Shown here is a 211-nucleotide RNA from Streptomyces boncukensis, a member of the family "c-di-AMP riboswitch aptamer (ydaO/yuaA leader)".
RNA sequence: GCACCGUGCGCGCCGAAUCCCGCACCGUCCCACAGGGCGGCGCGGGAACCGGGGAACCACCCCUCCGCGCCGCCCUCGCGGGCGAUACGGAGGAUGGGGUGAAUCGGGCGUCUCCGCCCGGGUCCGUCCAGGGCCGGGACCGGAGCCGCUCGUAGGAGACCUUCCUGCUCCGAACCCGUCAGCUAACCCGGUAGGCGAGAAGGAAGGAAAG
Numbered sequence: 001g002c003a004c005c006g007u008g009c010g011c012g013c014c015g016a017a018u019c020c021c022g023c024a025c026c027g028u029c030c031c032a033c034a035g036g037g038c039g040g041c042g043c044g045g046g047a048a049c050c051g052g053g054g055a056a057c058c059a060c061c062c063c064u065c066c067g068c069g070c071c072g073c074c075c076u077c078g079c080g081g082g083c084g085a086u087a088c089g090g091a092g093g094a095u096g097g098g099g100u101g102a103a104u105c106g107g108g109c110g111u112c113u114c115c116g117c118c119c120g121g122g123u124c125c126g127u128c129c130a131g132g133g134c135c136g137g138g139a140c141c142g143g144a145g146c147c148g149c150u151c152g153u154a155g156g157a158g159a160c161c162u163u164c165c166u167g168c169u170c171c172g173a174a175c176c177c178g179u180c181a182g183c184u185a186a187c188c189c190g191g192u193a194g195g196c197g198a199g200a201a202g203g204a205a206g207g208a209a210a211g
Stems, first nucleotide, its partner, number of pairs: 011197004018047006048192006058096002097177003105152006155171004
Background:
Rfam describes the family as follows. This family represents a conserved RNA structure found upstream of the ydaO and yuaA genes in Bacillus subtilis and related genes in other bacteria.